[Rfam]
RNA: Small nucleolar RNA SNORD69
Organism: Cnemophilus loriae
RNA sequence: UACACAAAGCACGUGAUGACAAAACACUGAAGCUGACCGUGUGAAGUACAUUCAAUCCAACACUGAGCUUUGUGUC
Numbered sequence: 001u002a003c004a005c006a007a008a009g010c011a012c013g014u015g016a017u018g019a020c021a022a023a024a025c026a027c028u029g030a031a032g033c034u035g036a037c038c039g040u041g042u043g044a045a046g047u048a049c050a051u052u053c054a055a056u057c058c059a060a061c062a063c064u065g066a067g068c069u070u071u072g073u074g075u076c
Stems, first nucleotide, its partner, number of pairs: 002075009